Nucleotides: 135
Stems, first nucleotide, its partner, number of pairs: 003129001011121001013119004019055002023052001025050005033043004057073005076101007085092002102112002
Number, partner (000 for none) and nucleotide at each position: 001000a002000g003129g004000a005000u006000u007000a008000a009000u010000a011121g012000a013119c014118u015117c016116c017000g018000a019055g020054c021000g022000a023052c024000u025050u026049a027048a028047u029046c030000u031000a032000a033043g034042g035041g036040c037000a038000g039000u040036g041035c042034c043033u044000a045000u046029g047028a048027u049026u050025a051000u052023g053000a054020g055019c056000c057073g058072u059071c060070a061069g062000a063000g064000a065000a066000a067000c068000u069061c070060u071059g072058g073057c074000c075000a076101g077100g078099g079098u080097u081096g082095g083000a084000a085092u086091g087000g088000a089000a090000a091086c092085a093000g094000a095082c096081c097080a098079g099078c100077c101076u102112u103111c104000c105000u106000u107000a108000u109000u110000u111103g112102a113000a114000a115000a116016g117015g118014a119013g120000c121011c122000u123000u124000u125000u126000u127000g128000c129003u130000a131000u132000g133000a134000a135000a